[Rfam]
RNA: Small nucleolar RNA SNORD97
Organism: Spermophilus dauricus
RNA sequence: UUGCCCGAUGAUUAUAAAAAGACGCGUUAUUAAGAGGACUUAUGCUGGAGUUCUUUUCUUUUUUCUCUCUUUUUCUUUUUCUUUCUUUGAAUGUCCAGCGUCCUAUGAGCGAAGAUUAUGAGAUAUGAGGGCAA
Numbered sequence: 001u002u003g004c005c006c007g008a009u010g011a012u013u014a015u016a017a018a019a020a021g022a023c024g025c026g027u028u029a030u031u032a033a034g035a036g037g038a039c040u041u042a043u044g045c046u047g048g049a050g051u052u053c054u055u056u057u058c059u060u061u062u063u064u065c066u067c068u069c070u071u072u073u074u075c076u077u078u079u080u081c082u083u084u085c086u087u088u089g090a091a092u093g094u095c096c097a098g099c100g101u102c103c104u105a106u107g108a109g110c111g112a113a114g115a116u117u118a119u120g121a122g123a124u125a126u127g128a129g130g131g132c133a134a
Stems, first nucleotide, its partner, number of pairs: 001134006035054007